[Rfam]
Notes: The family of this 80-nucleotide RNA sequence from Monodelphis domestica is "mir-150 microRNA precursor family". A search with the family's covariance model found it, with a score of 75 bits. On this family, see Murchison et al., Genome Res 2008: "Conservation of small RNA pathways in platypus".
RNA sequence: CUCCGGGGCCCCUUCUCCCAACCCUUGUACCAGAGUCCAUCAGAGACCCGGUACGGGCUGUGGGGGACGGGGAGUCGGGG
Numbered sequence: 001c002u003c004c005g006g007g008g009c010c011c012c013u014u015c016u017c018c019c020a021a022c023c024c025u026u027g028u029a030c031c032a033g034a035g036u037c038c039a040u041c042a043g044a045g046a047c048c049c050g051g052u053a054c055g056g057g058c059u060g061u062g063g064g065g066g067a068c069g070g071g072g073a074g075u076c077g078g079g080g
Base pairs, nucleotide, nucleotide: 010071011070012069014067015066016064017063018062022057023056026055027054028053029052030051031050